Nucleotides: 223
Stems, first nucleotide, its partner, number of pairs: 001146005014136004026125002030122003036052005053107007147162003
Number, partner (000 for none) and nucleotide at each position: 001146g002145g003144u004143g005142a006000u007000a008000a009000a010000c011000g012000g013000a014136c015135u016134g017133c018000g019000u020000a021000a022000u023000a024000a025000a026125c027124c028000a029000u030122u031121c032120g033000g034000a035000c036052c037051c038050g039049g040048g041000g042000g043000c044000g045000g046000u047000a048040c049039c050038c051037g052036g053107c054106g055105c056104c057103u058102c059101c060000a061000c062000c063000c064000a065000a066000g067000g068000c069000c070000u071000u072000g073000c074000a075000a076000a077000g078000c079000c080000a081000u082000c083000u084000g085000g086000c087000g088000c089000a090000a091000g092000g093000c094000u095000u096000u097000c098000g099000g100000c101059g102058g103057g104056g105055g106054c107053g108000a109000a110000a111000u112000a113000g114000g115000a116000u117000c118000g119000a120032c121031g122030g123000g124027g125026g126000c127000g128000u129000a130000a131000a132000g133017g134016c135015g136014g137000c138000u139000c140000u141000u142005u143004c144003a145002c146001u147162c148161g149160g150000c151000a152000u153000u154000g155000u156000a157000c158000c159000a160149c161148c162147g163000u164000u165000a166000u167000c168000g169000g170000g171000c172000u173000a174000a175000a176000c177000c178000u179000a180000u181000a182000g183000u184000u185000g186000c187000g188000a189000a190000u191000g192000a193000c194000a195000a196000c197000u198000a199000u200000g201000c202000u203000c204000c205000g206000g207000u208000g209000g210000c211000c212000g213000u214000c215000g216000c217000c218000g219000c220000g221000u222000a223000a
The record is a 223-nucleotide sequence from Pleomorphomonas diazotrophica, which matches "permuted transfer-messenger RNA" in Rfam.
Taxonomically the source falls in Pleomorphomonas (Bacteria, Pseudomonadati, Pseudomonadota, Alphaproteobacteria).
Its family is annotated with RNA catabolic process in the Gene Ontology.
The family's RNA type in Rfam is non-coding RNA gene.